[Rfam]
Notes:
A member of the RNA family "mir-231 microRNA precursor family" from Caenorhabditis elegans, 80 nucleotides long. Gene Ontology terms of the family: miRNA-mediated post-transcriptional gene silencing and RISC complex.

RNA sequence: GGUUGUUCUGACUGUUUCAAAAGCUUGUAGUAUCUUAAUAAAUAAACAUAUAAGCUCGUGAUCAACAGGCAGAACAACUC
Number, nucleotide and partner (000 for none) at each position: 001g000002g078003u077004u076005g075006u074007u073008c072009u071010g070011a000012c068013u067014g066015u065016u064017u061018c060019a059020a000021a000022a056023g055024c054025u053026u052027g051028u050029a049030g000031u048032a000033u046034c000035u000036u000037a000038a000039u000040a000041a000042a000043u000044a000045a000046a033047c000048a031049u029050a028051u027052a026053a025054g024055c023056u022057c000058g000059u019060g018061a017062u000063c000064a016065a015066c014067a013068g012069g000070c010071a009072g008073a007074a006075c005076a004077a003078c002079u000080c000
For this family Rfam cites "Repertoire and evolution of miRNA genes in four divergent nematode species" (de Wit et al., Genome Res, 2009). Rfam 15.1 lists 12 matches to the family in 11 species. Taxonomically the source falls in Caenorhabditis (Eukaryota, Bilateria, Nematoda, Peloderinae). It is one of the family's seed sequences.